Background:
A member of the RNA family "Makes More Granules Regulator RNA (mmgR)" from Rhodovastum atsumiense, 81 nucleotides long. NCBI's taxonomy places the organism under Bacteria, Pseudomonadati, Alphaproteobacteria, Acetobacterales, Rhodovastum. Clan: suhB sRNA clan. Pairs were carried over by alignment from the consensus structure.
[Rfam]
RNA sequence: UCAUCCUGCCGUGUGACUGGCGUUUCCUCCCUAAACUUGGCCCGCUGCGCCAUGGGCGCGCGGGCCUUUUUUCUGUUUAGG
Numbered sequence: 001u002c003a004u005c006c007u008g009c010c011g012u013g014u015g016a017c018u019g020g021c022g023u024u025u026c027c028u029c030c031c032u033a034a035a036c037u038u039g040g041c042c043c044g045c046u047g048c049g050c051c052a053u054g055g056g057c058g059c060g061c062g063g064g065c066c067u068u069u070u071u072u073c074u075g076u077u078u079a080g081g
Base pairs, nucleotide, nucleotide: 008021009020010019039066040065041064042063043062044061045060046058047057